[Rfam]
RNA sequence: GUUUUGAUGGCAGUGGAAUUAGUGAUUGUGGAAUUCUGGAUACAAUCAGCUAACUACACUGCCUGCAAACC
Numbered sequence: 001g002u003u004u005u006g007a008u009g010g011c012a013g014u015g016g017a018a019u020u021a022g023u024g025a026u027u028g029u030g031g032a033a034u035u036c037u038g039g040a041u042a043c044a045a046u047c048a049g050c051u052a053a054c055u056a057c058a059c060u061g062c063c064u065g066c067a068a069a070c071c
Stems, first nucleotide, its partner, number of pairs: 003069004009063002012060004017055001019053004023048008
RNA: mir-34 microRNA precursor family
Organism: Lamprotornis superbus